The record is an 82-nucleotide sequence, which matches "c-di-GMP-II-GCG riboswitch aptamer" in Rfam. Gene Ontology terms of the family: regulation of gene expression and cyclic-di-GMP binding. It is one of the family's seed sequences. The family is grouped with related families in Rfam's "c-di-GMP_II riboswitch clan".
RNA sequence: UCUCCGCCGGCUGCGAUAAGGCACGGUUCAUAUCCCGGCCGCCCGGACCGUGCAUAGCUACUGGCGAGCCCGCCAGCAUCGA
Numbered sequence: 001u002c003u004c005c006g007c008c009g010g011c012u013g014c015g016a017u018a019a020g021g022c023a024c025g026g027u028u029c030a031u032a033u034c035c036c037g038g039c040c041g042c043c044c045g046g047a048c049c050g051u052g053c054a055u056a057g058c059u060a061c062u063g064g065c066g067a068g069c070c071c072g073c074c075a076g077c078a079u080c081g082a
Base pairs, nucleotide, nucleotide: 001082002081006077007076009074010073013058014057021053022052023051024050025049026048027047029046037071038070040066041065042064043063